[Rfam]
Group II catalytic intron D1-D4-3: a 172-nucleotide sequence from Paenibacillus sp. FSL H7-0357.
RNA sequence: UCUGCCGUGAGGCGGAAUUUGCAGGAAGCUAGAGGCAAUCCCUCGGUCUGACGAACAGAAAUCAAAUAUAAGGCAUCCUGGACUGGAAGAGCUUGAAAAUCAAAGCAAAGUCUAAUACUGCCAGAAUAUCAGGAUGUAAAUGUGGCAGAUGGAUGAGGGGGAAGAUUAUCGA
Number, nucleotide and partner (000 for none) at each position: 001u016002c015003u014004g013005c012006c011007g000008u000009g000010a000011g006012g005013c004014g003015g002016a001017a000018u000019u000020u000021g000022c000023a000024g000025g000026a000027a000028g000029c171030u000031a169032g000033a000034g000035g000036c164037a000038a000039u000040c159041c158042c157043u156044c155045g154046g150047u149048c148049u147050g146051a000052c000053g000054a000055a000056c000057a000058g000059a000060a000061a000062u145063c144064a143065a000066a141067u140068a000069u000070a000071a000072g000073g137074c136075a135076u000077c133078c132079u131080g130081g129082a000083c000084u000085g113086g112087a111088a000089g000090a000091g106092c105093u104094u103095g000096a000097a000098a000099a000100u000101c000102a000103a094104a093105g092106c091107a000108a000109a000110g000111u087112c086113u085114a000115a000116u000117a000118c000119u000120g000121c000122c000123a000124g000125a000126a000127u000128a000129u081130c080131a079132g078133g077134a000135u075136g074137u073138a000139a000140a067141u066142g000143u064144g063145g062146c050147a049148g048149a047150u046151g000152g000153a000154u045155g044156a043157g042158g041159g040160g000161g000162a000163a000164g036165a000166u000167u000168a000169u031170c000171g029172a000
A reference for the family is Chu et al. (2001), "Control of branch-site choice by a group II intron", EMBO J. Pairs were carried over by alignment from the consensus structure. Taxonomically the source falls in Paenibacillus (Bacteria, Bacillati, Bacillota, Bacilli).